Annotation: The record is a 176-nucleotide RNA from Streptococcus pyogenes, which matches "S. pyogenes small RNA MOSES4" in Rfam. The sequence is in the family's curated seed alignment. Taxonomically the source falls in Streptococcus pyogenes serotype M49 (Bacteria, Bacillota, Bacilli, Streptococcus pyogenes). Pairs were carried over by alignment from the consensus structure, which was predicted with RNAfold.

RNA sequence: CGUUUCCUUCCUUAACACUAUCGACUCCAUAAUGACCCAUCAGUCAAACGGUAUAUCUCAAACGACUACGGUUUACUCCAAAUUGAUUGGCUAGUUGAGGCCAAGAAACACCUGAUUUUUUUAAUGCUAAAUUUCUAGCUUAUCUUCAUAGCUUAAUUUCAUACAAAAAAACCCCA
Numbered sequence: 001c002g003u004u005u006c007c008u009u010c011c012u013u014a015a016c017a018c019u020a021u022c023g024a025c026u027c028c029a030u031a032a033u034g035a036c037c038c039a040u041c042a043g044u045c046a047a048a049c050g051g052u053a054u055a056u057c058u059c060a061a062a063c064g065a066c067u068a069c070g071g072u073u074u075a076c077u078c079c080a081a082a083u084u085g086a087u088u089g090g091c092u093a094g095u096u097g098a099g100g101c102c103a104a105g106a107a108a109c110a111c112c113u114g115a116u117u118u119u120u121u122u123a124a125u126g127c128u129a130a131a132u133u134u135c136u137a138g139c140u141u142a143u144c145u146u147c148a149u150a151g152c153u154u155a156a157u158u159u160c161a162u163a164c165a166a167a168a169a170a171a172c173c174c175c176a
Stems, first nucleotide, its partner, number of pairs: 002109005010100007033046004047073003051069003056065002078090004116170006124162003129159005137153004